Shown here is a 126-nucleotide RNA from Oncorhynchus kisutch, a member of the family "mraW RNA". The family has 45 seed sequences and 851 matches in Rfam 15.1. The source organism's lineage runs through Eukaryota, Opisthokonta, Metazoa, Neopterygii and Oncorhynchus.
[Rfam]
RNA sequence: AGACUGACGGCUCUGGCGGCUCCUUUCAGACUGGCGGCUCCUUGCAGACUGGCGGCUCUGGCGGCUCUGUCCAGACUGCAAGGAGCCGCCAGUCUGAAAGGAGCCGCCAGAGCCGUCAGUCAGCCA
Numbered sequence: 001a002g003a004c005u006g007a008c009g010g011c012u013c014u015g016g017c018g019g020c021u022c023c024u025u026u027c028a029g030a031c032u033g034g035c036g037g038c039u040c041c042u043u044g045c046a047g048a049c050u051g052g053c054g055g056c057u058c059u060g061g062c063g064g065c066u067c068u069g070u071c072c073a074g075a076c077u078g079c080a081a082g083g084a085g086c087c088g089c090c091a092g093u094c095u096g097a098a099a100g101g102a103g104c105c106g107c108c109a110g111a112g113c114c115g116u117c118a119g120u121c122a123g124c125c126a
Stems, first nucleotide, its partner, number of pairs: 010113007018105002021102027